[Rfam]
RNA sequence: AACGGAGAAGCCGAAAACCGAUUAUAGAGUAGGCA
Numbered sequence: 001a002a003c004g005g006a007g008a009a010g011c012c013g014a015a016a017a018c019c020g021a022u023u024a025u026a027g028a029g030u031a032g033g034c035a
Base pairs, nucleotide, nucleotide: 003020004019005018010034011033012032
RNA: DUF805b RNA